Rfam assigns this 93-nucleotide RNA sequence from Carboxydothermus hydrogenoformans to the family "Selenocysteine transfer RNA". NCBI's taxonomy places the organism under Bacteria, Thermoanaerobacterales, Thermoanaerobacteraceae, Carboxydothermus, Carboxydothermus hydrogenoformans.

RNA sequence: GGGAGUGACUGGGUCCUGGUGGGCCCCGCGGGCUUCAAACCCGUUGUUGGGCGGUAAAACCGUCCAUGGUAGGUUCGAUUCCUAUUCACUCCC
Numbered sequence: 001g002g003g004a005g006u007g008a009c010u011g012g013g014u015c016c017u018g019g020u021g022g023g024c025c026c027c028g029c030g031g032g033c034u035u036c037a038a039a040c041c042c043g044u045u046g047u048u049g050g051g052c053g054g055u056a057a058a059a060c061c062g063u064c065c066a067u068g069g070u071a072g073g074u075u076c077g078a079u080u081c082c083u084a085u086u087c088a089c090u091c092c093c
Base pairs, nucleotide, nucleotide: 001093002092003091004090005089006088007087008085011026012025013024014023015022016021027046028044029043030042031041032040048066049065050064051063070084071083072082073081